[Rfam]
RNA sequence: GCCCUUUGCCAAACGCUUUGCGUGCCCUAUAUGGCUCGCGUCGGGUUCCACCCGGCUAUGGCGAUAAACUGCGGCGUAAAAUAGACGCAGCGGACCCGGGGGCGGUACCCGGCGGCUCCACCACCGCAGCUGUGCCGGACGACGAUAUGCAUCACGCGUGCCGCCGUCCGAUCCAGCUACGCUGACGGGGCCGAACUAGGAUCGACGUGUGUUGAAAGGCGCUGUUUUCGCUCGGAAUGGGACCACCGCAACGGCCCAUUACACAAGUGCCAACGAUAACGAAGCACUCGCGAUUGCGGCGUAACUGAGGGCCUAACGGCCUGACGUUACCCCAAAAGAGCGCGGUUGGACCCCACCGGGCAACAGAAGGGGAAACC
Numbered sequence: 001g002c003c004c005u006u007u008g009c010c011a012a013a014c015g016c017u018u019u020g021c022g023u024g025c026c027c028u029a030u031a032u033g034g035c036u037c038g039c040g041u042c043g044g045g046u047u048c049c050a051c052c053c054g055g056c057u058a059u060g061g062c063g064a065u066a067a068a069c070u071g072c073g074g075c076g077u078a079a080a081a082u083a084g085a086c087g088c089a090g091c092g093g094a095c096c097c098g099g100g101g102g103c104g105g106u107a108c109c110c111g112g113c114g115g116c117u118c119c120a121c122c123a124c125c126g127c128a129g130c131u132g133u134g135c136c137g138g139a140c141g142a143c144g145a146u147a148u149g150c151a152u153c154a155c156g157c158g159u160g161c162c163g164c165c166g167u168c169c170g171a172u173c174c175a176g177c178u179a180c181g182c183u184g185a186c187g188g189g190g191c192c193g194a195a196c197u198a199g200g201a202u203c204g205a206c207g208u209g210u211g212u213u214g215a216a217a218g219g220c221g222c223u224g225u226u227u228u229c230g231c232u233c234g235g236a237a238u239g240g241g242a243c244c245a246c247c248g249c250a251a252c253g254g255c256c257c258a259u260u261a262c263a264c265a266a267g268u269g270c271c272a273a274c275g276a277u278a279a280c281g282a283a284g285c286a287c288u289c290g291c292g293a294u295u296g297c298g299g300c301g302u303a304a305c306u307g308a309g310g311g312c313c314u315a316a317c318g319g320c321c322u323g324a325c326g327u328u329a330c331c332c333c334a335a336a337a338g339a340g341c342g343c344g345g346u347u348g349g350a351c352c353c354c355a356c357c358g359g360g361c362a363a364c365a366g367a368a369g370g371g372g373a374a375a376c377c
Stems, first nucleotide, its partner, number of pairs: 040056005060232005071225007086211003090208003096112005113193007233248003238258003243254002343358004351372004